[Rfam]
RNA sequence: AUGGAAGUGAUGAAUAUUUCCCCAAAUGAUCAAAAUUGAAAUUACCGAGCGCUAUUCUCUUUUAGAGAAAAAUACAAGCUAGGAUAUUCUAAUCCAU
Numbered sequence: 001a002u003g004g005a006a007g008u009g010a011u012g013a014a015u016a017u018u019u020c021c022c023c024a025a026a027u028g029a030u031c032a033a034a035a036u037u038g039a040a041a042u043u044a045c046c047g048a049g050c051g052c053u054a055u056u057c058u059c060u061u062u063u064a065g066a067g068a069a070a071a072a073u074a075c076a077a078g079c080u081a082g083g084a085u086a087u088u089c090u091a092a093u094c095c096a097u
Stems, first nucleotide, its partner, number of pairs: 001097005